[Rfam]
RNA sequence: CUCGUCGAAAUGUCUUUAGGGACAGCGUUAAAGUAGUGUACCGGGGGUAGAGCACUGGAUGGACUAGGGGGCCUACAAGCUUACCAAACCCAACUAAACUCCGAAUACCGGAUACAUGAUCUUUAGCAGUGAGGCUAGGGGGGAUAAGCUUCUUAGCCGAGAGGGAAACAACCCAGACCAACAUCUAAGGUCCCAAAAUCUAUACUAAGUGAUUUAAGGAUGUCAAAUCGCCCAGACAGCUAGGAGGUUGGCUUAGAAGCAGCAAUCCUUUAAAGAAAGCGUAAUAGCUCACUAGUCAAGGGGUUUGGCGCCGAUAAUAACCGGGACUAAAAAGUAUAGUACCGAAGAUUUGGAUUUAGUAAUAAAUGGUAGACGAGCGUUCUAUUAACCGUUGAAGGUUGAUCCGUGAGGACAGCUGGAGGAGAUAGAAGUGAGUAU
Dot-bracket structure: ((((((....(((((....))))).((((((((.((((((((((.....(((...(((.(((....((((((......)))).))....))).)))..)).).....)))).)))))..)))))))).)...((((((((((......))))))))))....(((......)))...((((.(((...(((......(.((((((............((..((((((((.(.......(((((.(((...((.........))...)))(...)(...((......)).).)))))...).)))))))).)).....................))))))))))...)))))))(((((....)))))....))))))(.(((((((..((......(((((.(((....))))))))...)).)))))))..).....

Background: Shown here is a 438-nucleotide part of an RNA from uncultured Fidelibacterota bacterium HF0010_18O13, a member of the family "Bacterial large subunit ribosomal RNA". NCBI's taxonomy places the organism under Bacteria, Pseudomonadati, Fidelibacterota. The sequence is in the family's curated seed alignment.